[Rfam]
RNA sequence: CAAAGAAUAGUUUAAGAAAAACAACAGCUUUGGGAGUUGUAGACGUAAGUGAAAACCUUACUUCUUUGA
Numbered sequence: 001c002a003a004a005g006a007a008u009a010g011u012u013u014a015a016g017a018a019a020a021a022c023a024a025c026a027g028c029u030u031u032g033g034g035a036g037u038u039g040u041a042g043a044c045g046u047a048a049g050u051g052a053a054a055a056c057c058u059u060a061c062u063u064c065u066u067u068g069a
Base pairs, nucleotide, nucleotide: 001068002067003066004065005064006063007062010022011021012020013019024040025039026038027037028036045061046060047059048058049057

A member of the RNA family "tRNA", 69 nucleotides long.